RNA sequence: GAAGGAGAAAUCCAAAGGGAUAGCAUGAUCCGAAAGAGAGAAUAUGAAAGGUUGGAUUUUGGAUCAAUGCGAUCCCUUUGGAUGCCUCCUC
Numbered sequence: 001g002a003a004g005g006a007g008a009a010a011u012c013c014a015a016a017g018g019g020a021u022a023g024c025a026u027g028a029u030c031c032g033a034a035a036g037a038g039a040g041a042a043u044a045u046g047a048a049a050g051g052u053u054g055g056a057u058u059u060u061g062g063a064u065c066a067a068u069g070c071g072a073u074c075c076c077u078u079u080g081g082a083u084g085c086c087u088c089c090u091c
Stems, first nucleotide, its partner, number of pairs: 003090004010083012023070003026066006035058001
RNA: mir-393 microRNA precursor family